[Rfam]
RNA sequence: CCUUUUAAAAUGAUGACCAUAUAGUUCAGCUGAUAUUGAUAUGCUGAGAUUCUUAUUAAAUGUCUUUCGCUCCUAUCUGAAACUAAAUAU
Numbered sequence: 001c002c003u004u005u006u007a008a009a010a011u012g013a014u015g016a017c018c019a020u021a022u023a024g025u026u027c028a029g030c031u032g033a034u035a036u037u038g039a040u041a042u043g044c045u046g047a048g049a050u051u052c053u054u055a056u057u058a059a060a061u062g063u064c065u066u067u068c069g070c071u072c073c074u075a076u077c078u079g080a081a082a083c084u085a086a087a088u089a090u
Base pairs, nucleotide, nucleotide: 004087005086006085007084
RNA: Small nucleolar RNA snR60/Z15/Z230/Z193/J17